Description
The family of this 363-nucleotide RNA from Microbacterium aurum is "Bacterial RNase P class A". The family's RNA type in Rfam is ribozyme.
[Rfam]
RNA sequence: UGGGUCGGCUGGACGGUCGCGUGGCGGGUUCACCCGCACCGAGGAACGUCCGGGCUCCACAGGGCAGGGCGGUGGGUAACACCCACCCGGAGUGAUCCGCGAGACAGUGCCACAGAGAGCAGACCGCCUCGGCGUCAGCCGGGGUAAGGGUGAAAGGGUGGCGUAAGAGACCACCGGGGUCGUGGUGACACGGCCCGCACGGUAAACCUCGCCCGGAGCAAGGUCAGACAGGGGAUGUGGACGCGGCCCGCCGAGUCCCCGGGUAGACCGCUGGAGCGGCACGGCAACGUGUCGCCGAGAGAGAUGACCGUCCACGGAGCUUCCGCUCCCGGACAGAACCCGGCGUACAGGCCGGCCCAUUCG
Numbered sequence: 001u002g003g004g005u006c007g008g009c010u011g012g013a014c015g016g017u018c019g020c021g022u023g024g025c026g027g028g029u030u031c032a033c034c035c036g037c038a039c040c041g042a043g044g045a046a047c048g049u050c051c052g053g054g055c056u057c058c059a060c061a062g063g064g065c066a067g068g069g070c071g072g073u074g075g076g077u078a079a080c081a082c083c084c085a086c087c088c089g090g091a092g093u094g095a096u097c098c099g100c101g102a103g104a105c106a107g108u109g110c111c112a113c114a115g116a117g118a119g120c121a122g123a124c125c126g127c128c129u130c131g132g133c134g135u136c137a138g139c140c141g142g143g144g145u146a147a148g149g150g151u152g153a154a155a156g157g158g159u160g161g162c163g164u165a166a167g168a169g170a171c172c173a174c175c176g177g178g179g180u181c182g183u184g185g186u187g188a189c190a191c192g193g194c195c196c197g198c199a200c201g202g203u204a205a206a207c208c209u210c211g212c213c214c215g216g217a218g219c220a221a222g223g224u225c226a227g228a229c230a231g232g233g234g235a236u237g238u239g240g241a242c243g244c245g246g247c248c249c250g251c252c253g254a255g256u257c258c259c260c261g262g263g264u265a266g267a268c269c270g271c272u273g274g275a276g277c278g279g280c281a282c283g284g285c286a287a288c289g290u291g292u293c294g295c296c297g298a299g300a301g302a303g304a305u306g307a308c309c310g311u312c313c314a315c316g317g318a319g320c321u322u323c324c325g326c327u328c329c330c331g332g333a334c335a336g337a338a339c340c341c342g343g344c345g346u347a348c349a350g351g352c353c354g355g356c357c358c359a360u361u362c363g
Base pairs, nucleotide, nucleotide: 001359002358003357004356005355006354007353008352009351010350011348012312013311014310015309016308017307018306020041021040024037025036026035027034028033046346047345048344050343051342052341053340054339055218056217057216058215062249063248064247065246067214068213069212070211071210072086073085074084075083076082087101088099089098090097091096102209103208107207108206109203110202111201124149125148126145127144128143129142130141131140132139133138157175158174159173160172161171176198177196178195179194180193181192182191183190184189222269223268224267225266231260232259233258234257235256236255243251244250276295277294278293279292280291281290282289283288
Its family is annotated with ribonuclease P activity, tRNA processing and dimeric ribonuclease P complex in the Gene Ontology.